[Rfam]
RNA sequence: GGUUUUAACCAGUUAACUAAGGUUAACAUUAAUUUCGACCAUUCGAAAGAUUGUGUUGAAUAACAAUAAUUUUUGGAACAGUUUCUUCGGGGAUAUCCGAUGAAGCAAA
Numbered sequence: 001g002g003u004u005u006u007a008a009c010c011a012g013u014u015a016a017c018u019a020a021g022g023u024u025a026a027c028a029u030u031a032a033u034u035u036c037g038a039c040c041a042u043u044c045g046a047a048a049g050a051u052u053g054u055g056u057u058g059a060a061u062a063a064c065a066a067u068a069a070u071u072u073u074u075g076g077a078a079c080a081g082u083u084u085c086u087u088c089g090g091g092g093a094u095a096u097c098c099g100a101u102g103a104a105g106c107a108a109a
Base pairs, nucleotide, nucleotide: 007034008033012027013026016024018022036058037057038056039055040053041052043050044049083107085105086104087103088102089101091098092097
RNA: SL2 RNA
Organism: Caenorhabditis elegans